Rfam assigns this 123-nucleotide sequence from Faecalibacterium sp. An121 to the family "FMN riboswitch aptamer (RFN element)". The match comes from Rfam's covariance-model search (116 bits). The family's consensus secondary structure is taken from published work. The source organism's lineage runs through Bacteria, Bacillota, Clostridia, Oscillospiraceae and Faecalibacterium.

RNA sequence: AGUUCGUUUCGGGGCGGGGUGAGAUUCCCCACCGGCGGUAGAGCCCGCGACCACUUUGCUGCAAAGUGCUGACCCGGUGUGAUUCCGGGGCCGACAGUAUAGUCUGGAUGGAAGAGACGAUGA
Numbered sequence: 001a002g003u004u005c006g007u008u009u010c011g012g013g014g015c016g017g018g019g020u021g022a023g024a025u026u027c028c029c030c031a032c033c034g035g036c037g038g039u040a041g042a043g044c045c046c047g048c049g050a051c052c053a054c055u056u057u058g059c060u061g062c063a064a065a066g067u068g069c070u071g072a073c074c075c076g077g078u079g080u081g082a083u084u085c086c087g088g089g090g091c092c093g094a095c096a097g098u099a100u101a102g103u104c105u106g107g108a109u110g111g112a113a114g115a116g117a118c119g120a121u122g123a
Stems, first nucleotide, its partner, number of pairs: 004120007017029003031103002033093002035048004043091002052068002073089005095106003